[Rfam]
RNA sequence: ACCCUAACAAUGGUCCUGACCUGUCUGAAUCAUUUGGUAAGUGCUAUUUGUUGGGGUAGUUUGA
Number, nucleotide and partner (000 for none) at each position: 001a057002c056003c055004c054005u053006a000007a051008c050009a049010a048011u000012g045013g044014u043015c000016c041017u040018g000019a038020c037021c036022u000023g000024u000025c000026u000027g000028a000029a000030u000031c000032a000033u000034u000035u000036g021037g020038u019039a000040a017041g016042u000043g014044c013045u012046a000047u000048u010049u009050g008051u007052u000053g005054g004055g003056g002057u001058a000059g000060u000061u000062u000063g000064a000
RNA: miR-430 microRNA precursor family
Organism: Clarias magur